This 147-nucleotide RNA from Miscanthus lutarioriparius belongs to the Rfam family "MIR6234 microRNA precursor family". The family has 2 seed sequences and 141 matches in Rfam 15.1. Taxonomically the source falls in Miscanthus (Eukaryota, Liliopsida, Poaceae, Saccharinae).
[Rfam]
Nucleotides: 147
Stems, first nucleotide, its partner, number of pairs: 002146006011138001016132001018130009028120003032117001034115003038111001039109003043106003047100006056091002059087001062084004066079001069076002
Number, partner (000 for none) and nucleotide at each position: 001000c002146u003145c004144u005143u006142u007141u008000u009000c010000c011138g012000u013000a014000u015000c016132c017000a018130a019129g020128u021127g022126u023125g024124u025123u026122c027000c028120u029119c030118u031000a032117u033000c034115u035114g036113a037000c038111g039109g040108u041107a042000a043106g044105g045104g046000u047100g048099g049098a050097u051096g052095c053000u054000c055000g056091g057090g058000u059087u060000g061000a062084a063083a064082c065081a066079c067000u068000u069076c070075a071000c072000a073000a074000a075070u076069g077000u078000u079066g080000u081065u082064g083063u084062u085000a086000a087059a088000u089000a090057u091056u092000g093000u094000a095052g096051u097050a098049u099048u100047c101000u102000u103000u104045c105044c106043u107041u108040a109039c110000g111038c112000a113036u114035c115034a116000a117032g118030a119029g120028a121000c122026g123025a124024a125023c126022a127021c128020a129019c130018u131000c132016g133000c134000c135000c136000a137000c138011c139000a140000a141007a142006a143005a144004g145003g146002a147000g